[Rfam]
RNA sequence: CCUCUUUGGGGAGUAGCCUGCCUUCAUCCAUUUGAAGGCGCCUUGGUCAACAUUCUCGGCGCAUUGCCGUGGUCAAGGCAUCCAAACGGAGUGGUGAGACCAACGACAUCUCUGUACCAGAAGCUGGGCGUACAGGGACUGUUCGUUGUCUUGUUGCCCGGCAGGU
Numbered sequence: 001c002c003u004c005u006u007u008g009g010g011g012a013g014u015a016g017c018c019u020g021c022c023u024u025c026a027u028c029c030a031u032u033u034g035a036a037g038g039c040g041c042c043u044u045g046g047u048c049a050a051c052a053u054u055c056u057c058g059g060c061g062c063a064u065u066g067c068c069g070u071g072g073u074c075a076a077g078g079c080a081u082c083c084a085a086a087c088g089g090a091g092u093g094g095u096g097a098g099a100c101c102a103a104c105g106a107c108a109u110c111u112c113u114g115u116a117c118c119a120g121a122a123g124c125u126g127g128g129c130g131u132a133c134a135g136g137g138a139c140u141g142u143u144c145g146u147u148g149u150c151u152u153g154u155u156g157c158c159c160g161g162c163a164g165g166u
Stems, first nucleotide, its partner, number of pairs: 021038003040079010057069005085166001
RNA: Manganese Mn2+ riboswitch aptamer (yybP-ykoY)